[Rfam]
The family of this 195-nucleotide RNA sequence from Lolium perenne is "Early nodulin 40". Rfam 15.1 lists 341 matches to the family in 193 species. It is one of the family's seed sequences. The family's RNA type in Rfam is non-coding RNA gene. The source organism's lineage runs through Eukaryota, Mesangiospermae, Pooideae, Loliodinae and Lolium. For this family Rfam cites "Identification of conserved secondary structures and expansion segments in enod40 RNAs reveals new enod40 homologues in plants" (Gultyaev and Roussis, Nucleic Acids Res, 2007).
RNA sequence: AUGGAAGAUGCAUGGCUUGAGCAUCUACAUAGUUCUUGAGAGCAGAAGCAUGAUGAGGAUGAACCACAAAGCUGAGCUCCUGCUUAAGAAGCGCUUCAGUCUUAUGGUUCCUAUCCUGAGCUCCCAGGUGGUUGUCUGAGGUACGCACGAACCGGCAAGUCACAAAACGGCAAUGGUGAACUCCAGCAGGAGUCU
Numbered sequence: 001a002u003g004g005a006a007g008a009u010g011c012a013u014g015g016c017u018u019g020a021g022c023a024u025c026u027a028c029a030u031a032g033u034u035c036u037u038g039a040g041a042g043c044a045g046a047a048g049c050a051u052g053a054u055g056a057g058g059a060u061g062a063a064c065c066a067c068a069a070a071g072c073u074g075a076g077c078u079c080c081u082g083c084u085u086a087a088g089a090a091g092c093g094c095u096u097c098a099g100u101c102u103u104a105u106g107g108u109u110c111c112u113a114u115c116c117u118g119a120g121c122u123c124c125c126a127g128g129u130g131g132u133u134g135u136c137u138g139a140g141g142u143a144c145g146c147a148c149g150a151a152c153c154g155g156c157a158a159g160u161c162a163c164a165a166a167a168c169g170g171c172a173a174u175g176g177u178g179a180a181c182u183c184c185a186g187c188a189g190g191a192g193u194c195u
Stems, first nucleotide, its partner, number of pairs: 047078003091152001094149001096147001110145001112143001180193004